This 173-nucleotide RNA sequence from Nitrosovibrio tenuis belongs to the Rfam family "Manganese Mn2+ riboswitch aptamer (yybP-ykoY)".
The pairing is the family consensus, mapped onto this sequence.
Taxonomically the source falls in Nitrosovibrio (Bacteria, Betaproteobacteria, Nitrosomonadales, Nitrosomonadaceae).
[Rfam]
RNA sequence: UAUCAUGUCAUUGGGGAGUAGCCGCUCUUUGCACAAAGAGGCUUGCGUCAACAUACUUGACCGUUCGGUCAUGGCGUAAGCAGUCCCUUAGCUUGGCAAGACCUUUGACCACAUCGCUUCCGCAUUGGCCGGGGAAGUAAUGUGGUCAUCGUCUUCGACCGGCCUUGGAACUC
Numbered sequence: 001u002a003u004c005a006u007g008u009c010a011u012u013g014g015g016g017a018g019u020a021g022c023c024g025c026u027c028u029u030u031g032c033a034c035a036a037a038g039a040g041g042c043u044u045g046c047g048u049c050a051a052c053a054u055a056c057u058u059g060a061c062c063g064u065u066c067g068g069u070c071a072u073g074g075c076g077u078a079a080g081c082a083g084u085c086c087c088u089u090a091g092c093u094u095g096g097c098a099a100g101a102c103c104u105u106u107g108a109c110c111a112c113a114u115c116g117c118u119u120c121c122g123c124a125u126u127g128g129c130c131g132g133g134g135a136a137g138u139a140a141u142g143u144g145g146u147c148a149u150c151g152u153c154u155u156c157g158a159c160c161g162g163c164c165u166u167g168g169a170a171c172u173c
Stems, first nucleotide, its partner, number of pairs: 026039003041081010058071005082172003086168002